[Rfam]
RNA sequence: AGGACACAGACGGAGCGGAAGGCACGGUUGUGUGACGCAACCUAAUCACCGCCCCGACAGUCC
Dot-bracket structure: .((((......((.((((..((...(((((((...)))))))...)).)))))).....))))
The record is a 63-nucleotide RNA sequence from Giardia duodenalis, which matches "Giardia snoRNA GlsR17" in Rfam. Rfam's curators put it in the seed alignment. Rfam links the family to the GO terms RNA processing and nucleolus.